mir-16 microRNA precursor family: an 83-nucleotide sequence from Ameiurus melas. Rfam links the family to the GO terms RISC complex and miRNA-mediated post-transcriptional gene silencing.
RNA sequence: UCCCCACUUUAGCAGCACGUAAAUAUUGGUGUGUGAGAAAAUACAGCCUAACCCCAAUAUUACUUGUGCUGCUUCAGUGAGGC
Dot-bracket structure: .((.(((..(((((((((...((((((((........................))))))))....))))))))..)))).)).
Numbered sequence: 001u002c003c004c005c006a007c008u009u010u011a012g013c014a015g016c017a018c019g020u021a022a023a024u025a026u027u028g029g030u031g032u033g034u035g036a037g038a039a040a041a042u043a044c045a046g047c048c049u050a051a052c053c054c055c056a057a058u059a060u061u062a063c064u065u066g067u068g069c070u071g072c073u074u075c076a077g078u079g080a081g082g083c
Stems, first nucleotide, its partner, number of pairs: 002082002005079003010076001011073008022061008

The base pairs follow the family's consensus structure, which was predicted with PFOLD. Clan: mir-15 clan.